Group II catalytic intron D1-D4-1: a 95-nucleotide sequence from Thiocapsa imhoffii. Taxonomically the source falls in Thiocapsa (Bacteria, Pseudomonadota, Gammaproteobacteria, Chromatiaceae). From the family's description: Group II introns are found in rRNA, tRNA and mRNA of organelles in fungi, plants and protists, and also in mRNA in bacteria. The base pairs follow the family's consensus structure.
RNA sequence: UUACUCGGGGAGAUCUGGCCCGUGAGAGCGGUCCAGAAGUCAGCAGAGGCCGUAGUAGCGUUGAGGCCCGGUGAAAGUCGGGAGGAGUGAAGGGC
Numbered sequence: 001u002u003a004c005u006c007g008g009g010g011a012g013a014u015c016u017g018g019c020c021c022g023u024g025a026g027a028g029c030g031g032u033c034c035a036g037a038a039g040u041c042a043g044c045a046g047a048g049g050c051c052g053u054a055g056u057a058g059c060g061u062u063g064a065g066g067c068c069c070g071g072u073g074a075a076a077g078u079c080g081g082g083a084g085g086a087g088u089g090a091a092g093g094g095c
Stems, first nucleotide, its partner, number of pairs: 001026002004024001006022004040047002049095003058088002067082003